[Rfam]
RNA sequence: GCCUGAAUGAUCUUCGGUGGUCCGGUUUGCAGGCUUCAAACCUGUAGCUGCUUAACGGCAAAGUGGUUCGAUUUCACCUUCUGGGC
Number, nucleotide and partner (000 for none) at each position: 001g086002c085003c084004u083005g082006a000007a080008u000009g078010a000011u000012c000013u000014u025015c024016g023017g022018u000019g000020g000021u000022c017023c016024g015025g014026u000027u000028u046029g045030c044031a043032g042033g041034c000035u000036u000037c000038a000039a000040a000041c033042c032043u031044g030045u029046a028047g000048c000049u060050g059051c058052u057053u000054a000055a000056c000057g052058g051059c050060a049061a000062a000063g077064u076065g075066g074067u000068u000069c000070g000071a000072u000073u000074u066075c065076a064077c063078c009079u000080u007081c000082u005083g004084g003085g002086c001

A member of the RNA family "Selenocysteine transfer RNA" from Caligus rogercresseyi, 86 nucleotides long. Taxonomically the source falls in Caligus (Eukaryota, Metazoa, Ecdysozoa, Neocopepoda). It scores 55 bits against the family's covariance model. Pairs were carried over by alignment from the consensus structure, which is taken from published work.